[Rfam]
RNA: Eukaryotic large subunit ribosomal RNA, nucleotides 2191 to 2755
RNA sequence: GGUAGUAGCAAAUAUUCAAGUGAGAACCUUGAAGGCCGAGGUGGAGAAGGGUUCCAUGGGAACAGCAGUUGGCCAUGGGUCAGGCGGUCCUAAGCGAUCCGGUGACUCGGUACAGAGUCGUGGGGUGCCUUAACUGUUCUGUGUGUGUGUGUGCAUAUACUUCUAUAUGUGUAUUAUAUGCUGGCAGCCCCUCGGAGCGAAAGGGAAUCGGGUUAAUAUUCCCGACCCUGCCCACGGAGAUAGGUGGUGUUUGUGUGCUUGCCUCGACGCACGUGUAACAGCGUGUGCAACAAGUUACCGGCAUCAUCAAGCGCGGCAACGCAAACGAACUCGGAGACGUCGGCAAGAGUUCCGGGAAGAGUUUUCUUUUCUUUGUAAGGACGGCUACCAUCCCUGGAAUCGGGUUGUCCGGAGAUAGGGAUCUCGCCUCCGUAAAGCACCACCCCUCUUGUGGUGUCCGGUACGCUCUUGUCGGCCCUUGAAAAUCCGAGGGAGGCAUUGUGAUUUUCGUGGCAGGCCGUACCCAUAUCCGCAUCAGGUCUCCAAGGUGAAGAGCCUCUGGCAC
Numbered sequence: 001g002g003u004a005g006u007a008g009c010a011a012a013u014a015u016u017c018a019a020g021u022g023a024g025a026a027c028c029u030u031g032a033a034g035g036c037c038g039a040g041g042u043g044g045a046g047a048a049g050g051g052u053u054c055c056a057u058g059g060g061a062a063c064a065g066c067a068g069u070u071g072g073c074c075a076u077g078g079g080u081c082a083g084g085c086g087g088u089c090c091u092a093a094g095c096g097a098u099c100c101g102g103u104g105a106c107u108c109g110g111u112a113c114a115g116a117g118u119c120g121u122g123g124g125g126u127g128c129c130u131u132a133a134c135u136g137u138u139c140u141g142u143g144u145g146u147g148u149g150u151g152u153g154c155a156u157a158u159a160c161u162u163c164u165a166u167a168u169g170u171g172u173a174u175u176a177u178a179u180g181c182u183g184g185c186a187g188c189c190c191c192u193c194g195g196a197g198c199g200a201a202a203g204g205g206a207a208u209c210g211g212g213u214u215a216a217u218a219u220u221c222c223c224g225a226c227c228c229u230g231c232c233c234a235c236g237g238a239g240a241u242a243g244g245u246g247g248u249g250u251u252u253g254u255g256u257g258c259u260u261g262c263c264u265c266g267a268c269g270c271a272c273g274u275g276u277a278a279c280a281g282c283g284u285g286u287g288c289a290a291c292a293a294g295u296u297a298c299c300g301g302c303a304u305c306a307u308c309a310a311g312c313g314c315g316g317c318a319a320c321g322c323a324a325a326c327g328a329a330c331u332c333g334g335a336g337a338c339g340u341c342g343g344c345a346a347g348a349g350u351u352c353c354g355g356g357a358a359g360a361g362u363u364u365u366c367u368u369u370u371c372u373u374u375g376u377a378a379g380g381a382c383g384g385c386u387a388c389c390a391u392c393c394c395u396g397g398a399a400u401c402g403g404g405u406u407g408u409c410c411g412g413a414g415a416u417a418g419g420g421a422u423c424u425c426g427c428c429u430c431c432g433u434a435a436a437g438c439a440c441c442a443c444c445c446c447u448c449u450u451g452u453g454g455u456g457u458c459c460g461g462u463a464c465g466c467u468c469u470u471g472u473c474g475g476c477c478c479u480u481g482a483a484a485a486u487c488c489g490a491g492g493g494a495g496g497c498a499u500u501g502u503g504a505u506u507u508u509c510g511u512g513g514c515a516g517g518c519c520g521u522a523c524c525c526a527u528a529u530c531c532g533c534a535u536c537a538g539g540u541c542u543c544c545a546a547g548g549u550g551a552a553g554a555g556c557c558u559c560u561g562g563c564a565c
Stems, first nucleotide, its partner, number of pairs: 015033006035563003043544004049524002054078006063071002085520003089204002094198002097111002100109003123191003208225005228516004302512003306508001313322003330491006339476004344471007352461003356374005379431003383427001391421006400412004438456006530539002546558004